[Rfam]
A member of the RNA family "rpsB sRNA" from Phyllobacterium myrsinacearum, 103 nucleotides long. Pairs were carried over by alignment from the consensus structure, which is taken from published work. For this family Rfam cites "Identification of candidate structured RNAs in the marine organism 'Candidatus Pelagibacter ubique'" (Meyer et al., BMC Genomics, 2009).
RNA sequence: CACACACGGGAUUUGGGUUGAUAUCGGGAGAAAUCCGAUAUGGCCUCCGGUGGCGGGUUUCCCGCCUCUUUCCUGUGGAGGUUAAACCGGAAAAGGAAAACUA
Numbered sequence: 001c002a003c004a005c006a007c008g009g010g011a012u013u014u015g016g017g018u019u020g021a022u023a024u025c026g027g028g029a030g031a032a033a034u035c036c037g038a039u040a041u042g043g044c045c046u047c048c049g050g051u052g053g054c055g056g057g058u059u060u061c062c063c064g065c066c067u068c069u070u071u072c073c074u075g076u077g078g079a080g081g082u083u084a085a086a087c088c089g090g091a092a093a094a095g096g097a098a099a100a101c102u103a
Stems, first nucleotide, its partner, number of pairs: 001080001003078001005077006015045002025037002028035001052066006